[Rfam]
RNA: Singlet oxygen resistance RNA X
RNA sequence: AGCUAUCGAAGGACGGUGCUUCUGCGCCCCUUCACCUCCCUGUUGGACUUCGGCCGAGCUUUUAGCUCGGCCUUUUUU
Number, nucleotide and partner (000 for none) at each position: 001a000002g000003c000004u000005a000006u000007c000008g033009a032010a031011g030012g029013a000014c000015g000016g000017u000018g000019c000020u000021u000022c000023u000024g000025c000026g000027c000028c000029c012030c011031u010032u009033c008034a000035c000036c000037u000038c000039c000040c000041u000042g000043u000044u000045g000046g000047a000048c000049u000050u000051c000052g072053g071054c070055c069056g068057a067058g066059c065060u000061u000062u000063u000064a000065g059066c058067u057068c056069g055070g054071c053072c052073u000074u000075u000076u000077u000078u000